About this RNA: The family of this 88-nucleotide sequence from Calypte anna is "mir-204 microRNA precursor family".
RNA sequence: CAGCCCCCUGUGGGUUUCCCUUUGUCAUCCUAUGCCUGAGCCAUCCCUGGAGGCUGGGACGGUGAAGGGAGACCCACGGGCUGCAAGG
Dot-bracket structure: ................((((((.((..(((((.((((.............)))))))))..)).))))))..................
Rfam links the family to the GO terms miRNA-mediated post-transcriptional gene silencing and RISC complex. It scores 59 bits against the family's covariance model. The family has 60 seed sequences and 1,730 matches in Rfam 15.1. On this family, see Chen et al., Genes Dev 2005: "The developmental miRNA profiles of zebrafish as determined by small RNA cloning".